[Rfam]
RNA sequence: GUAGGAAAAUGACCUAUGAAUUGACAGACAUUAUAUUUAAAGUUUGUCUGUCAUUUCUGUAGGCCAAUGCCUUGU
Number, nucleotide and partner (000 for none) at each position: 001g075002u074003a073004g072005g071006a000007a000008a068009a000010u066011g065012a000013c063014c062015u061016a060017u000018g057019a056020a055021u000022u053023g052024a051025c050026a049027g048028a047029c046030a045031u000032u000033a000034u000035a000036u000037u000038u000039a000040a000041a000042g000043u000044u000045u030046g029047u028048c027049u026050g025051u024052c023053a022054u000055u020056u019057c018058u000059g000060u016061a015062g014063g013064c000065c011066a010067a000068u008069g000070c000071c005072u004073u003074g002075u001

This 75-nucleotide RNA sequence from Monodelphis domestica belongs to the Rfam family "mir-192/215 microRNA precursor family". The base pairs follow the family's consensus structure, which was predicted with PFOLD. Rfam describes the family as follows. This family represents the human microRNA (miRNA) precursors mir-192 and mir-215. The source organism's lineage runs through Eukaryota, Chordata, Teleostomi, Didelphinae and Monodelphis. Its family is annotated with miRNA-mediated post-transcriptional gene silencing and RISC complex in the Gene Ontology.